The family of this 85-nucleotide RNA sequence is "c-di-GMP-II-GAG riboswitch aptamer".
RNA sequence: GCGUCGGCGGGAGGCUCCGACUCGCGGUCCACGCCUUGGCCGCUGGGACCGCGCCGAGCCACUGGCGAGACCGACCCGCGUGCUC
Numbered sequence: 001g002c003g004u005c006g007g008c009g010g011g012a013g014g015c016u017c018c019g020a021c022u023c024g025c026g027g028u029c030c031a032c033g034c035c036u037u038g039g040c041c042g043c044u045g046g047g048a049c050c051g052c053g054c055c056g057a058g059c060c061a062c063u064g065g066c067g068a069g070a071c072c073g074a075c076c077c078g079c080g081u082g083c084u085c
Stems, first nucleotide, its partner, number of pairs: 001085001003083002007079005013060003023053007038072002041067004
Gene Ontology terms of the family: cyclic-di-GMP binding and regulation of gene expression.